[Rfam]
RNA sequence: UCACCGGCUAACGGUGGGGUCUGAAGGAAGCCAUAGGAAGUUAGAGGUACACAACUAACCGUAACCUGUUUCGGCGGCAUUGGUGGGUAAGCGUCCAAAAUAGCGCGAAGCCCAAUACUUAGUCAAACUAAUGCUGUGUUUGAGGGUGGCAUUUCUAACAGGGAGUCAGU
Numbered sequence: 001u002c003a004c005c006g007g008c009u010a011a012c013g014g015u016g017g018g019g020u021c022u023g024a025a026g027g028a029a030g031c032c033a034u035a036g037g038a039a040g041u042u043a044g045a046g047g048u049a050c051a052c053a054a055c056u057a058a059c060c061g062u063a064a065c066c067u068g069u070u071u072c073g074g075c076g077g078c079a080u081u082g083g084u085g086g087g088u089a090a091g092c093g094u095c096c097a098a099a100a101u102a103g104c105g106c107g108a109a110g111c112c113c114a115a116u117a118c119u120u121a122g123u124c125a126a127a128c129u130a131a132u133g134c135u136g137u138g139u140u141u142g143a144g145g146g147u148g149g150c151a152u153u154u155c156u157a158a159c160a161g162g163g164a165g166u167c168a169g170u
Stems, first nucleotide, its partner, number of pairs: 001017005033170002037166001040159006046150001048148003065145003074137003078133007085113004091106004